[Rfam]
Rfam assigns this 46-nucleotide RNA from a Pirellulaceae bacterium to the family "Acido-Lenti-1 RNA". Rfam classes the family as a small RNA. A search with the family's covariance model found it, with a score of 57 bits.
RNA sequence: CCGUGGGCUUACGCCCACGGCUAUUAAAUGUCGCCGCUUCGCGGCU
Number, nucleotide and partner (000 for none) at each position: 001c020002c019003g018004u017005g016006g015007g014008c013009u000010u000011a000012c000013g008014c007015c006016c005017a004018c003019g002020g001021c000022u000023a000024u000025u000026a000027a000028a000029u000030g000031u000032c000033g045034c044035c043036g042037c041038u000039u000040c000041g037042c036043g035044g034045c033046u000